[Rfam]
RNA sequence: UGCCUAAACUCGUAGCAAUACGGGCAUGGCUUUCAAAACCCUUCGCAGAUACUGAACCCCGUGUUCAGCGACUCUGCGAAGGGUCAUAUUCCGAAAGGAGUAUGGGCGGCCGAAAGGUUGCU
Number, nucleotide and partner (000 for none) at each position: 001u000002g030003c029004c028005u000006a000007a000008a000009c024010u023011c022012g021013u020014a019015g000016c000017a000018a000019u014020a013021c012022g011023g010024g009025c000026a000027u000028g004029g003030c002031u000032u000033u000034c000035a000036a000037a000038a000039c083040c082041c081042u080043u079044c078045g077046c076047a075048g074049a073050u070051a000052c068053u067054g066055a065056a064057c063058c000059c000060c000061g000062u000063g057064u056065u055066c054067a053068g052069c000070g050071a000072c000073u049074c048075u047076g046077c045078g044079a043080a042081g041082g040083g039084u000085c104086a103087u102088a101089u100090u099091c098092c097093g000094a000095a000096a000097g092098g091099a090100g089101u088102a087103u086104g085105g122106g121107c120108g119109g118110c117111c000112g000113a000114a000115a000116g000117g110118u109119u108120g107121c106122u105

Overview: The family of this 122-nucleotide sequence is "LOOT RNA". The base pairs follow the family's consensus structure, which is taken from published work. Rfam classes the family as a small RNA. It is one of the family's seed sequences.